Source information:
A member of the RNA family "sRNA-Xcc1" from Escherichia coli, 90 nucleotides long. The literature on the family includes a 2011 paper in RNA Biol by Chen et al., "sRNA-Xcc1, an integron-encoded transposon- and plasmid-transferred trans-acting sRNA, is under the positive control of the key virulence regulators HrpG and HrpX of Xanthomonas campestris pathovar campestris". Pairs were carried over by alignment from the consensus structure, which was predicted with RNAalifold. The family has 74 seed sequences and 421 matches in Rfam 15.1.
[Rfam]
RNA sequence: GGUCGGGUGGAGAGGCGUAAUACAAUACCCGCAAGGGGAAUAUGCCCGGAGCAUCUUUGAAGGCUCUAGUUGACACCCGAUCACCAGCCA
Numbered sequence: 001g002g003u004c005g006g007g008u009g010g011a012g013a014g015g016c017g018u019a020a021u022a023c024a025a026u027a028c029c030c031g032c033a034a035g036g037g038g039a040a041u042a043u044g045c046c047c048g049g050a051g052c053a054u055c056u057u058u059g060a061a062g063g064c065u066c067u068a069g070u071u072g073a074c075a076c077c078c079g080a081u082c083a084c085c086a087g088c089c090a
Base pairs, nucleotide, nucleotide: 001082002081003080004079005078006077007076008075009074014046015045016044018042019041028037029036030035048067049066050065051064052063